[Rfam]
RNA sequence: AAGCUUCGGGUCUGUGGUUGAAAGUCGAUGCCAGUCGCAGGCAAAACGAUCCACAUAAGCGGGCAAAAAUGCCCGUGAGCAUGGUGCGGCUUAGAUGUAAGUCCGUCCGCAUGUAUUGUGCGAGAGGGUGUGUAGUGGGAGGCUGUAAGCUCAGUAGCGAAAGCUCCGGACGGCGAGUGUGGGGGCAAAGAUCAGGUCAGCCGAGGUUU
Numbered sequence: 001a002a003g004c005u006u007c008g009g010g011u012c013u014g015u016g017g018u019u020g021a022a023a024g025u026c027g028a029u030g031c032c033a034g035u036c037g038c039a040g041g042c043a044a045a046a047c048g049a050u051c052c053a054c055a056u057a058a059g060c061g062g063g064c065a066a067a068a069a070u071g072c073c074c075g076u077g078a079g080c081a082u083g084g085u086g087c088g089g090c091u092u093a094g095a096u097g098u099a100a101g102u103c104c105g106u107c108c109g110c111a112u113g114u115a116u117u118g119u120g121c122g123a124g125a126g127g128g129u130g131u132g133u134a135g136u137g138g139g140a141g142g143c144u145g146u147a148a149g150c151u152c153a154g155u156a157g158c159g160a161a162a163g164c165u166c167c168g169g170a171c172g173g174c175g176a177g178u179g180u181g182g183g184g185g186c187a188a189a190g191a192u193c194a195g196g197u198c199a200g201c202c203g204a205g206g207u208u209u
Base pairs, nucleotide, nucleotide: 001209002208003207004206005205006204007203008202009201012200013199014198015194016193017192018191019190028180029179030178031041033091034090035089036088037087038086039085050084051083058076061073062072082187103173104172105171106170107169108122109121110120111119112118126166127165128164129163135158136157141151142150143149
The record is a 209-nucleotide RNA, which matches "raiA RNA" in Rfam. It is annotated as a riboswitch. Pairs were carried over by alignment from the consensus structure, which is taken from published work.